[Rfam]
RNA sequence: GUACAGACGCCAAUAGGUGGAUUGCUAGGCUUGAGGAGAGAGGAAGGACGUGGCAAGCUGCGAUAAGCUCGGGGUAGGCGCACGCAACCGUUGAUCCCGAGAUCUCCGAAUGAGAAUCUUGCACACAAGUGCAUUCCAGCCUUACGGCUGGAAGUCGAACCGUGGGAAUUGAAGCAUCUUAGUACCACGAGGAAGAGAAAUCAACCGAGAUUUCCCAAGUAGAGGCGAUCGAAAAGGAAAGAGCCCAAACCGAAUCCUACGGGAGAUGUGGUGUUUUGGCAUGGUAACGUGGAAUUCCAGCGCACAGCCGAGGUGGACUGGAAAGUCCCGGCGUAGAGGGUGAUACCCCCGUAGGCAAAGUGCAAAAGAUCCUAUCCAUGCCCGAGUAGUUGUCCUUGGUAGUGGGCAAUGAAUACGGGUGAAAGUAGCAUCCGAGGCUAAAUAUCUCUCAAGACCGAUAGUGGACUAGUACCGUGAGGGAAAGCUGAAAAGUACCCCGGAAGGGGGGUGAAAAGUGCAUGAAACCUGUUGGUUACAGACG
Numbered sequence: 001g002u003a004c005a006g007a008c009g010c011c012a013a014u015a016g017g018u019g020g021a022u023u024g025c026u027a028g029g030c031u032u033g034a035g036g037a038g039a040g041a042g043g044a045a046g047g048a049c050g051u052g053g054c055a056a057g058c059u060g061c062g063a064u065a066a067g068c069u070c071g072g073g074g075u076a077g078g079c080g081c082a083c084g085c086a087a088c089c090g091u092u093g094a095u096c097c098c099g100a101g102a103u104c105u106c107c108g109a110a111u112g113a114g115a116a117u118c119u120u121g122c123a124c125a126c127a128a129g130u131g132c133a134u135u136c137c138a139g140c141c142u143u144a145c146g147g148c149u150g151g152a153a154g155u156c157g158a159a160c161c162g163u164g165g166g167a168a169u170u171g172a173a174g175c176a177u178c179u180u181a182g183u184a185c186c187a188c189g190a191g192g193a194a195g196a197g198a199a200a201u202c203a204a205c206c207g208a209g210a211u212u213u214c215c216c217a218a219g220u221a222g223a224g225g226c227g228a229u230c231g232a233a234a235a236g237g238a239a240a241g242a243g244c245c246c247a248a249a250c251c252g253a254a255u256c257c258u259a260c261g262g263g264a265g266a267u268g269u270g271g272u273g274u275u276u277u278g279g280c281a282u283g284g285u286a287a288c289g290u291g292g293a294a295u296u297c298c299a300g301c302g303c304a305c306a307g308c309c310g311a312g313g314u315g316g317a318c319u320g321g322a323a324a325g326u327c328c329c330g331g332c333g334u335a336g337a338g339g340g341u342g343a344u345a346c347c348c349c350c351g352u353a354g355g356c357a358a359a360g361u362g363c364a365a366a367a368g369a370u371c372c373u374a375u376c377c378a379u380g381c382c383c384g385a386g387u388a389g390u391u392g393u394c395c396u397u398g399g400u401a402g403u404g405g406g407c408a409a410u411g412a413a414u415a416c417g418g419g420u421g422a423a424a425g426u427a428g429c430a431u432c433c434g435a436g437g438c439u440a441a442a443u444a445u446c447u448c449u450c451a452a453g454a455c456c457g458a459u460a461g462u463g464g465a466c467u468a469g470u471a472c473c474g475u476g477a478g479g480g481a482a483a484g485c486u487g488a489a490a491a492g493u494a495c496c497c498c499g500g501a502a503g504g505g506g507g508g509u510g511a512a513a514a515g516u517g518c519a520u521g522a523a524a525c526c527u528g529u530u531g532g533u534u535a536c537a538g539a540c541g
Stems, first nucleotide, its partner, number of pairs: 009533009023519001024485002028456002030453006036446002046107003049062003068101006077089002112120003134153008160191001161189005171178002201208002212239004222230002242439004250271003281379004291372003307356003313329001315328004332336001338350003389410007417433005472479002

Archaeal large subunit ribosomal RNA: a 541-nucleotide part of an RNA from a Nitrosopumilaceae archaeon.
NCBI's taxonomy places the organism under Archaea, Thermoproteati, Nitrososphaeria, Nitrosopumilales, Nitrosopumilaceae.
The family has 91 seed sequences and 2,955 matches in Rfam 15.1.